[Rfam]
RNA sequence: GUGCAGGUAAAGUUACAAUGUAGCUGUGUAGUGCUGUAUUGUCGUUCCCCCUGCACAAAGCAAAAUUGUCUCUUUUCUAUCCUUGUCUGUUUUGAUUCCACGGCAGACAGGGACGCUUGGUUUCAUACAU
Dot-bracket structure: ..(((((.......((((((((((........)))))))))).......)))))...........................((((.((((............)))).))))...................

A member of the RNA family "Small nucleolar RNA SNORA63" from Podarcis lilfordi, 130 nucleotides long. Gene Ontology terms of the family: nucleolus and RNA processing. The organism belongs to Podarcis, within Eukaryota. Rfam describes the family as follows. E3 belongs to the H/ACA class of snoRNAs and is involved in the processing of eukaryotic pre-rRNA and has regions of complementarity to 18S rRNA. E3 is encoded in introns in the gene for protein synthesis initiation factor 4AII. The match comes from Rfam's covariance-model search (118 bits).